Rfam assigns this 86-nucleotide sequence from Candidatus Enterococcus dunnyi to the family "Enterococcus sRNA 84".

[Rfam]
RNA sequence: UACCAACAACAACCCUUUUUAUUUUUUCAUUUUACUCGCAAGAGUAAAACUCCUUUUCCCAUCUUCUUAGAAGGUGGGAUUUUUUU
Numbered sequence: 001u002a003c004c005a006a007c008a009a010c011a012a013c014c015c016u017u018u019u020u021a022u023u024u025u026u027u028c029a030u031u032u033u034a035c036u037c038g039c040a041a042g043a044g045u046a047a048a049a050c051u052c053c054u055u056u057u058c059c060c061a062u063c064u065u066c067u068u069a070g071a072a073g074g075u076g077g078g079a080u081u082u083u084u085u086u
Base pairs, nucleotide, nucleotide: 032047033046034045035044036043037042058078059077060076061075062074063073064072065071066070
The base pairs follow the family's consensus structure, which was predicted with RNAfold. On this family, see Innocenti et al., RNA 2015: "Whole-genome mapping of 5' RNA ends in bacteria by tagged sequencing: a comprehensive view in Enterococcus faecalis".